[Rfam]
RNA sequence: GUCAACUACCCCCGACUGAAGCCGGGGGCUUGUGAGAGCAAGCCGGGUUGACCAGGGAAAGCGGUGAAAGUCCGCUACGUUUGCAACAGGUCGUCAAGACCCACCGGCGGAUGCUGCCUCAGUCCGCCGCUCUGGAAGGCUGGGAUCAUGCUGGCGAAAAGUAAAGCGCCGAAGGUUCCAGCCGCCGCGAAAGCGGGAGCCGGUUGCAGACAUUCCCAAGGGGAGAUGGGG
Numbered sequence: 001g002u003c004a005a006c007u008a009c010c011c012c013c014g015a016c017u018g019a020a021g022c023c024g025g026g027g028g029c030u031u032g033u034g035a036g037a038g039c040a041a042g043c044c045g046g047g048u049u050g051a052c053c054a055g056g057g058a059a060a061g062c063g064g065u066g067a068a069a070g071u072c073c074g075c076u077a078c079g080u081u082u083g084c085a086a087c088a089g090g091u092c093g094u095c096a097a098g099a100c101c102c103a104c105c106g107g108c109g110g111a112u113g114c115u116g117c118c119u120c121a122g123u124c125c126g127c128c129g130c131u132c133u134g135g136a137a138g139g140c141u142g143g144g145a146u147c148a149u150g151c152u153g154g155c156g157a158a159a160a161g162u163a164a165a166g167c168g169c170c171g172a173a174g175g176u177u178c179c180a181g182c183c184g185c186c187g188c189g190a191a192a193g194c195g196g197g198a199g200c201c202g203g204u205u206g207c208a209g210a211c212a213u214u215c216c217c218a219a220g221g222g223g224a225g226a227u228g229g230g231g
Stems, first nucleotide, its partner, number of pairs: 001052007010028002012025002016021001029042004055217005060076005079211009089201001101135002105129008113227001115225001117223004138183010152171005

Shown here is a 231-nucleotide sequence from Ectothiorhodospira magna, a member of the family "HNH endonuclease-associated RNA and ORF (HEARO) RNA". By type it is a non-coding RNA gene. The base pairs follow the family's consensus structure, which is taken from published work. A reference for the family is Weinberg et al. (2009), "Exceptional structured noncoding RNAs revealed by bacterial metagenome analysis", Nature. A search with the family's covariance model found it, with a score of 116 bits. Rfam 15.1 lists 952 matches to the family in 249 species.